[Rfam]
MIR6274 microRNA precursor family: a 105-nucleotide RNA from Prunus yedoensis. It scores 93 bits against the family's covariance model. The source organism's lineage runs through Eukaryota, Magnoliopsida, Gunneridae, Prunus and Prunus yedoensis. The base pairs follow the family's consensus structure, which was predicted with RNAalifold.

RNA sequence: GGAUAACGGUGUUUUGCUAUUCCCGGCCAAUAAUACAAUGACACGUAGAAUAAUUUUUCAUGUGUCAUUGUGUUAUUGGCCGGGGAUAGCAAAACACCACUAUCC
Dot-bracket structure: .((((......(((((((((.(((((((((((((((((((((((((.(((.....))).))))))))))))))))))))))))).)))))))))......)))).